[Rfam]
This 171-nucleotide RNA from Erinaceus europaeus belongs to the Rfam family "TUC338". The literature on the family includes a 2011 paper in Proc Natl Acad Sci U S A by Braconi et al., "Expression and functional role of a transcribed noncoding RNA with an ultraconserved element in hepatocellular carcinoma". It is one of the family's seed sequences.
RNA sequence: UUGAAGGCGUGGAGACUGAAGUCUUCUGUAUCCACAGAACAGGUACGGCACAUGCAGCGGCAGUGCAGCUUUUCCACUGUCCCACCAAUGUGCCUCAGGUCCUACCUUAAGGAGACCAUGUUGAGGGUAAGAAGGCUGUUCAGUCUCCAUGCCCUUCAAUCUUUGGCUACA
Numbered sequence: 001u002u003g004a005a006g007g008c009g010u011g012g013a014g015a016c017u018g019a020a021g022u023c024u025u026c027u028g029u030a031u032c033c034a035c036a037g038a039a040c041a042g043g044u045a046c047g048g049c050a051c052a053u054g055c056a057g058c059g060g061c062a063g064u065g066c067a068g069c070u071u072u073u074c075c076a077c078u079g080u081c082c083c084a085c086c087a088a089u090g091u092g093c094c095u096c097a098g099g100u101c102c103u104a105c106c107u108u109a110a111g112g113a114g115a116c117c118a119u120g121u122u123g124a125g126g127g128u129a130a131g132a133a134g135g136c137u138g139u140u141c142a143g144u145c146u147c148c149a150u151g152c153c154c155u156u157c158a159a160u161c162u163u164u165g166g167c168u169a170c171a
Stems, first nucleotide, its partner, number of pairs: 002158003006153002010149011023134005029129004036103002039100001045095001048093006059081005107124004113119001